[Rfam]
Small nucleolar RNA U105B: an 80-nucleotide RNA sequence from Callithrix jacchus. The family's consensus secondary structure was predicted with WAR. Rfam links the family to the GO terms RNA processing and nucleolus. Rfam classes the family as a C/D-box small nucleolar RNA. Rfam 15.1 lists 132 matches to the family in 131 species. It scores 94 bits against the family's covariance model. The family is grouped with related families in Rfam's "SNORD105 clan". A reference for the family is Yang et al. (2006), "snoSeeker: an advanced computational package for screening of guide and orphan snoRNA genes in the human genome", Nucleic Acids Res.
RNA sequence: CUUCAUGCGGCUGAUGACAGCACUCUUGCUGAGACUCUGUGAUUGCUCUGUCUCAAAGUAAACGCCCUGACACAUUGUGG
Numbered sequence: 001c002u003u004c005a006u007g008c009g010g011c012u013g014a015u016g017a018c019a020g021c022a023c024u025c026u027u028g029c030u031g032a033g034a035c036u037c038u039g040u041g042a043u044u045g046c047u048c049u050g051u052c053u054c055a056a057a058g059u060a061a062a063c064g065c066c067c068u069g070a071c072a073c074a075u076u077g078u079g080g
Base pairs, nucleotide, nucleotide: 005075006074007073009071010021011020012019013018029050031048032047033046